RNA sequence: GUGGCAGUGAUGAUUGGCGCAGGGGUACGGACCUCAGCUGGAUCAUGGGAGCUGAAUGCAAACCAGCUCAGUGAGCUGGCAUGUGGCUGGCUCCCUGGAAGCAGGUUUGCAUGAGACUUUGCCAAAAGCUGAGCCAC
Numbered sequence: 001g002u003g004g005c006a007g008u009g010a011u012g013a014u015u016g017g018c019g020c021a022g023g024g025g026u027a028c029g030g031a032c033c034u035c036a037g038c039u040g041g042a043u044c045a046u047g048g049g050a051g052c053u054g055a056a057u058g059c060a061a062a063c064c065a066g067c068u069c070a071g072u073g074a075g076c077u078g079g080c081a082u083g084u085g086g087c088u089g090g091c092u093c094c095c096u097g098g099a100a101g102c103a104g105g106u107u108u109g110c111a112u113g114a115g116a117c118u119u120u121g122c123c124a125a126a127a128g129c130u131g132a133g134c135c136a137c
Stems, first nucleotide, its partner, number of pairs: 001137005
Dot-bracket structure: (((((...............................................................................................................................)))))
The family of this 137-nucleotide sequence from Ceyx cyanopectus is "Small nucleolar RNA SNORD94". It is annotated as a C/D-box small nucleolar RNA. On this family, see Vitali et al., Nucleic Acids Res 2003: "Identification of 13 novel human modification guide RNAs". The base pairs follow the family's consensus structure, which was predicted with RNAalifold. Taxonomically the source falls in Ceyx (Eukaryota, Gnathostomata, Tetrapoda, Dinosauria).